[Rfam]
Rfam assigns this 143-nucleotide sequence from Rhamnella rubrinervis to the family "Small nucleolar RNA snoR2/U65". Its family is annotated with nucleolus and RNA processing in the Gene Ontology.
RNA sequence: GGCUCAAUGCCACGUCGCCGGUAGCUCAAAGAGCGGUGACCGGCGAUGCUAUGAUUGGGCCGAGAGUGAUGUUCGCAUCUUGAUAGGAACCUGUGGAUUUUAUUCUGGUUUUUCCACGGAGCCGAUUUAUUGCGAUUACAUAU
Numbered sequence: 001g002g003c004u005c006a007a008u009g010c011c012a013c014g015u016c017g018c019c020g021g022u023a024g025c026u027c028a029a030a031g032a033g034c035g036g037u038g039a040c041c042g043g044c045g046a047u048g049c050u051a052u053g054a055u056u057g058g059g060c061c062g063a064g065a066g067u068g069a070u071g072u073u074c075g076c077a078u079c080u081u082g083a084u085a086g087g088a089a090c091c092u093g094u095g096g097a098u099u100u101u102a103u104u105c106u107g108g109u110u111u112u113u114c115c116a117c118g119g120a121g122c123c124g125a126u127u128u129a130u131u132g133c134g135a136u137u138a139c140a141u142a143u
Stems, first nucleotide, its partner, number of pairs: 002060007009052001013048006020041003024034003073135005086123002091119003095115003

The match comes from Rfam's covariance-model search (118 bits). The base pairs follow the family's consensus structure, which was predicted with WAR. It is annotated as an H/ACA-box small nucleolar RNA. On this family, see Shaw et al., J Cell Sci 1998: "Localization and processing from a polycistronic precursor of novel snoRNAs in maize".